[Rfam]
RNA: SAM riboswitch aptamer (S box leader)
RNA sequence: GAUUUAUAAAGAAGCGCUGAGAGAGUAGGCUCGAUGAAGCGCUGGCAACCUGCUACACAGUAAGGUGCUAAGUCCUACCUAAUUUAUUCAUUAGGAAAGAUAAAUC
Numbered sequence: 001g002a003u004u005u006a007u008a009a010a011g012a013a014g015c016g017c018u019g020a021g022a023g024a025g026u027a028g029g030c031u032c033g034a035u036g037a038a039g040c041g042c043u044g045g046c047a048a049c050c051u052g053c054u055a056c057a058c059a060g061u062a063a064g065g066u067g068c069u070a071a072g073u074c075c076u077a078c079c080u081a082a083u084u085u086a087u088u089c090a091u092u093a094g095g096a097a098a099g100a101u102a103a104a105u106c
Base pairs, nucleotide, nucleotide: 001106002105003104004103005102006101007100013043014042015041016040017039021032022031023030026077027076028075029074044069045068046067047066049065050064051062052061053060054059073098078095079094080093081092082091083090